RNA: Potassium channel RNA editing signal
RNA sequence: CUGGGGUACGGAGACAUGGUGCUUAAGACGAUUGCAGGGAAGAUCUUCGGCUCCAUCUGCUCCUUGAGUGGCGUCCUGGUCAUUGCCCUGCCAGUCCCUGUGAUUGUUUCCAAC
Numbered sequence: 001c002u003g004g005g006g007u008a009c010g011g012a013g014a015c016a017u018g019g020u021g022c023u024u025a026a027g028a029c030g031a032u033u034g035c036a037g038g039g040a041a042g043a044u045c046u047u048c049g050g051c052u053c054c055a056u057c058u059g060c061u062c063c064u065u066g067a068g069u070g071g072c073g074u075c076c077u078g079g080u081c082a083u084u085g086c087c088c089u090g091c092c093a094g095u096c097c098c099u100g101u102g103a104u105u106g107u108u109u110c111c112a113a114c
Stems, first nucleotide, its partner, number of pairs: 002113001004111002008107004014101003018097002021095002037077004049063002